RNA: c-di-GMP-I-GGC riboswitch aptamer
RNA sequence: UCUGCCAGAGGCACACUCGUCGCCAGGCGAGGGCGCGAAGCUACCCGUCCCGAUCGUGACGGACAGUGGGGUUGCCGCGG
Numbered sequence: 001u002c003u004g005c006c007a008g009a010g011g012c013a014c015a016c017u018c019g020u021c022g023c024c025a026g027g028c029g030a031g032g033g034c035g036c037g038a039a040g041c042u043a044c045c046c047g048u049c050c051c052g053a054u055c056g057u058g059a060c061g062g063a064c065a066g067u068g069g070g071g072u073u074g075c076c077g078c079g080g
Stems, first nucleotide, its partner, number of pairs: 001080001003077002011036002016031006034066001039073004044069002047064003
Dot-bracket structure: (.((......((...((((((....))))))..[))..((((.((.(((............))).].))))))..))..)